[Rfam]
RNA sequence: AUAUAAGAGGAAAACUAUUUUUUAGAGUCAUUGAGAAACUAAUGUAUUUGGUCUAUAAUGUAGGCCAAAUACAUUGGAUUCUCAAUGAAUCUAAAAAGUAGUUUUCCUCUUAUAU
Numbered sequence: 001a002u003a004u005a006a007g008a009g010g011a012a013a014a015c016u017a018u019u020u021u022u023u024a025g026a027g028u029c030a031u032u033g034a035g036a037a038a039c040u041a042a043u044g045u046a047u048u049u050g051g052u053c054u055a056u057a058a059u060g061u062a063g064g065c066c067a068a069a070u071a072c073a074u075u076g077g078a079u080u081c082u083c084a085a086u087g088a089a090u091c092u093a094a095a096a097a098g099u100a101g102u103u104u105u106c107c108u109c110u111u112a113u114a115u
Stems, first nucleotide, its partner, number of pairs: 002114006009107005015101011028088010039077006049067004
The record is a 115-nucleotide sequence from Trifolium pratense, which matches "MIR2593 microRNA precursor family" in Rfam. Rfam links the family to the GO terms miRNA-mediated post-transcriptional gene silencing and RISC complex. Rfam 15.1 lists 1,262 matches to the family in 6 species. The base pairs follow the family's consensus structure, which was predicted with RNAalifold.